[Rfam]
RNA sequence: GUACAACUUUAGGGGUGUCAGUUCGCGUGUCGGGCUGACUGAGAGAAUACCCUUAUCACCUGAUGCAGUUCAUACUGCCGUAGGGAAAAGUUAGCCUCGCUUU
Numbered sequence: 001g002u003a004c005a006a007c008u009u010u011a012g013g014g015g016u017g018u019c020a021g022u023u024c025g026c027g028u029g030u031c032g033g034g035c036u037g038a039c040u041g042a043g044a045g046a047a048u049a050c051c052c053u054u055a056u057c058a059c060c061u062g063a064u065g066c067a068g069u070u071c072a073u074a075c076u077g078c079c080g081u082a083g084g085g086a087a088a089a090g091u092u093a094g095c096c097u098c099g100c101u102u103u
Base pairs, nucleotide, nucleotide: 006091007090008089009088010087011053012052013051014050016047017039018038019037020036021035022034023033024032025031059084060083061082062081065078066077067076068075
Notes
A member of the RNA family "TPP riboswitch aptamer (THI element)" from Spirosoma taeanense, 103 nucleotides long. Vitamin B(1) in its active form thiamin pyrophosphate (TPP) is an essential coenzyme that is synthesised by coupling of pyrimidine and thiazole moieties in bacteria. Lineage of the source: Bacteria > Pseudomonadati > Bacteroidota > Cytophagaceae > Spirosoma. Rfam links the family to the GO term thiamine pyrophosphate binding. A search with the family's covariance model found it, with a score of 70 bits.